[Rfam]
The family of this 82-nucleotide RNA sequence is "nrdJ RNA".
RNA sequence: ACCUGUCACGGGUGCUGCUCGCAGUGCUCACGACGAAAGACGGAAACCGUGCCCUGGGAAGCUAUGGGCACAUCAGGGCGUU
Numbered sequence: 001a002c003c004u005g006u007c008a009c010g011g012g013u014g015c016u017g018c019u020c021g022c023a024g025u026g027c028u029c030a031c032g033a034c035g036a037a038a039g040a041c042g043g044a045a046a047c048c049g050u051g052c053c054c055u056g057g058g059a060a061g062c063u064a065u066g067g068g069c070a071c072a073u074c075a076g077g078g079c080g081u082u
Stems, first nucleotide, its partner, number of pairs: 004035004010029007049071006
The family's consensus secondary structure is taken from published work.